RNA sequence: AUUGGCCGGGAUCGCCCCCCGUCAGCGAGGAUUCGCCCACGGGGGCCGCAUCG
Number, nucleotide and partner (000 for none) at each position: 001a000002u000003u000004g000005g000006c000007c000008g000009g000010g000011a000012u000013c000014g000015c000016c045017c044018c043019c042020c041021g040022u039023c000024a000025g036026c035027g034028a033029g000030g000031a000032u000033u028034c027035g026036c025037c000038c000039a022040c021041g020042g019043g018044g017045g016046c000047c000048g000049c000050a000051u000052c000053g000

Shown here is a 53-nucleotide RNA sequence from Tropicibacter naphthalenivorans, a member of the family "ffh sRNA". A search with the family's covariance model found it, with a score of 57 bits. The base pairs follow the family's consensus structure, which is taken from published work. The source organism's lineage runs through Bacteria, Pseudomonadati, Alphaproteobacteria, Roseobacteraceae and Tropicibacter. By type it is a small RNA.